[Rfam]
RNA sequence: UGGUUGGCAUCGUAAAGAGUCAAACUAAAUAAUAUAUUAUUGUUAGACAAUAAAACAAAAUAUUGGUCUUUUGUUUUACUUGCUUUGAUCCUUUCGGACAAAGACUUUAUA
Numbered sequence: 001u002g003g004u005u006g007g008c009a010u011c012g013u014a015a016a017g018a019g020u021c022a023a024a025c026u027a028a029a030u031a032a033u034a035u036a037u038u039a040u041u042g043u044u045a046g047a048c049a050a051u052a053a054a055a056c057a058a059a060a061u062a063u064u065g066g067u068c069u070u071u072u073g074u075u076u077u078a079c080u081u082g083c084u085u086u087g088a089u090c091c092u093u094u095c096g097g098a099c100a101a102a103g104a105c106u107u108u109a110u111a
Stems, first nucleotide, its partner, number of pairs: 001027003004023005010018002082105001083103005089098003
A member of the RNA family "pan motif" from Peptoclostridium litorale, 111 nucleotides long. The base pairs follow the family's consensus structure, which is taken from published work. The match comes from Rfam's covariance-model search (38 bits). Lineage of the source: Bacteria > Bacillota > Peptostreptococcales > Peptoclostridium > Peptoclostridium litorale.